[Rfam]
Annotation:
The family of this 158-nucleotide part of an RNA from Cryptosporidium muris is "Eukaryotic small subunit ribosomal RNA". The match comes from Rfam's covariance-model search (1801 bits).
RNA sequence: CCGCCCGUCGCUCCUACCGAUUGAGUGAUCCGGUGAAUAAUUCGGACCAUGCUACGAGUAGCAAAUACAUAGCAAGGAAAGUUUCGUAAACCUUAUCACUUAGAGGAAGGAGAAGUCGUAACAAGGUUUCCGUAGGUGAACCUGCGGAAGGAUCAUUC
Number, nucleotide and partner (000 for none) at each position: 001c125002c000003g122004c000005c000006c118007g117008u000009c115010g000011c112012u111013c110014c109015u108016a000017c106018c105019g000020a000021u102022u000023g101024a100025g099026u098027g097028a096029u095030c000031c000032g092033g091034u090035g000036a000037a087038u086039a000040a084041u000042u000043c081044g000045g000046a000047c077048c076049a000050u074051g073052c072053u071054a070055c000056g068057a000058g000059u067060a066061g000062c000063a000064a000065a000066u060067a059068c056069a000070u054071a053072g052073c051074a050075a000076g048077g047078a000079a000080a000081g043082u000083u000084u040085c000086g038087u037088a000089a000090a034091c033092c032093u000094u000095a029096u028097c027098a026099c025100u024101u023102a021103g000104a000105g018106g017107a000108a015109g014110g013111a012112g011113a000114a000115g009116u000117c007118g006119u000120a000121a000122c003123a000124a000125g001126g000127u150128u149129u148130c147131c146132g145133u144134a143135g142136g141137u000138g000139a000140a000141c136142c135143u134144g133145c132146g131147g130148a129149a128150g127151g000152a000153u000154c000155a000156u000157u000158c000